[Rfam]
RNA sequence: AAGCGAUAAUGGCAAACUCGUUGAAAAGCGGGGACGCAAAGCUUUGGGCCUAACGGACUAGCUCCCAUGGUUGCCAGGUUGCCGAA
Numbered sequence: 001a002a003g004c005g006a007u008a009a010u011g012g013c014a015a016a017c018u019c020g021u022u023g024a025a026a027a028g029c030g031g032g033g034a035c036g037c038a039a040a041g042c043u044u045u046g047g048g049c050c051u052a053a054c055g056g057a058c059u060a061g062c063u064c065c066c067a068u069g070g071u072u073g074c075c076a077g078g079u080u081g082c083c084g085a086a
Stems, first nucleotide, its partner, number of pairs: 012037002017032006040080004045076003048071003055065003
The family of this 86-nucleotide RNA sequence from Gorillibacterium sp. is "c-di-GMP-I riboswitch aptamer". A reference for the family is Sudarsan et al. (2008), "Riboswitches in Eubacteria Sense the Second Messenger Cyclic Di-GMP", Science.